[Rfam]
RNA sequence: GGGUGUCAAGCAAACUUCCAUUGCUGGGCAGGUUAACGCGCAGGUCGGGCCGCCGCG
Number, nucleotide and partner (000 for none) at each position: 001g000002g000003g000004u000005g029006u028007c027008a000009a025010g024011c023012a022013a000014a000015c000016u000017u000018c000019c000020a000021u000022u012023g011024c010025u009026g000027g007028g006029c005030a000031g000032g000033u000034u000035a000036a000037c000038g000039c057040g056041c055042a000043g054044g053045u052046c000047g000048g000049g000050c000051c000052g045053c044054c043055g041056c040057g039
This 57-nucleotide RNA sequence from Bordetella genomosp. 4 belongs to the Rfam family "nhaA-I RNA". By type it is a riboswitch. About the family: Acidobacteria, Alphaproteobacteria, Betaproteobacteria and Gammaproteobacteria, Verrucomicrobia, cand. division NC10.